[Rfam]
RNA sequence: UCAGACUUAUAAAUCACAUCUGGUUUAUAAACAUGAAUCCCCUGAGUGAAACAACGAAUUGCUGUGUGUAGUCUUUGCCCAUCUCCCACGAUGGGCUUUUUUUUGC
Numbered sequence: 001u002c003a004g005a006c007u008u009a010u011a012a013a014u015c016a017c018a019u020c021u022g023g024u025u026u027a028u029a030a031a032c033a034u035g036a037a038u039c040c041c042c043u044g045a046g047u048g049a050a051a052c053a054a055c056g057a058a059u060u061g062c063u064g065u066g067u068g069u070a071g072u073c074u075u076u077g078c079c080c081a082u083c084u085c086c087c088a089c090g091a092u093g094g095g096c097u098u099u100u101u102u103u104u105g106c
Stems, first nucleotide, its partner, number of pairs: 002022004032044002035041001060068003077096007

Rfam assigns this 106-nucleotide sequence from Mangrovibacter sp. MFB070 to the family "RprA RNA". Taxonomically the source falls in Mangrovibacter (Bacteria, Pseudomonadati, Pseudomonadota, Gammaproteobacteria). Gene Ontology term of the family: mRNA binding. Translational regulation of the stationary phase sigma factor RpoS is mediated by the formation of a double-stranded RNA stem-loop structure in the upstream region of the rpoS messenger RNA, occluding the translation initiation site.